RNA: engA RNA
RNA sequence: UCCCUGAAUGUAAUCGAGGGAGUGACUCUCGCCAAAAGAGCGAGGGCCGGAGCAAGGUCAGCUUCGGCAAAAUUAUUAGCUUGGAUGCAGAGACCACAUCCUUGAAU
Numbered sequence: 001u002c003c004c005u006g007a008a009u010g011u012a013a014u015c016g017a018g019g020g021a022g023u024g025a026c027u028c029u030c031g032c033c034a035a036a037a038g039a040g041c042g043a044g045g046g047c048c049g050g051a052g053c054a055a056g057g058u059c060a061g062c063u064u065c066g067g068c069a070a071a072a073u074u075a076u077u078a079g080c081u082u083g084g085a086u087g088c089a090g091a092g093a094c095c096a097c098a099u100c101c102u103u104g105a106a107u
Stems, first nucleotide, its partner, number of pairs: 001021005027045006046068008078103002083101005